[Rfam]
RNA sequence: GGUGCUAUGAUGAGAUGAAACACUUUGUGGUGUUUUUAGGCAGUGGACGUAACCAAAAGGUUUCGCCGUGAGCCUUCAAUUUAACGACUUCUCCUUCCACUGAGUACC
Numbered sequence: 001g002g003u004g005c006u007a008u009g010a011u012g013a014g015a016u017g018a019a020a021c022a023c024u025u026u027g028u029g030g031u032g033u034u035u036u037u038a039g040g041c042a043g044u045g046g047a048c049g050u051a052a053c054c055a056a057a058a059g060g061u062u063u064c065g066c067c068g069u070g071a072g073c074c075u076u077c078a079a080u081u082u083a084a085c086g087a088c089u090u091c092u093c094c095u096u097c098c099a100c101u102g103a104g105u106a107c108c
Stems, first nucleotide, its partner, number of pairs: 001108005
A member of the RNA family "Small nucleolar RNA Z152/R70/R12/" from Vigna angularis, 108 nucleotides long. By type it is a C/D-box small nucleolar RNA. For this family Rfam cites "Identification of 66 box C/D snoRNAs in Arabidopsis thaliana: extensive gene duplications generated multiple isoforms predicting new ribosomal RNA 2'-O-methylation sites" (Barneche et al., J Mol Biol, 2001). The organism belongs to Vigna angularis, within Eukaryota. Pairs were carried over by alignment from the consensus structure, which was predicted with PFOLD.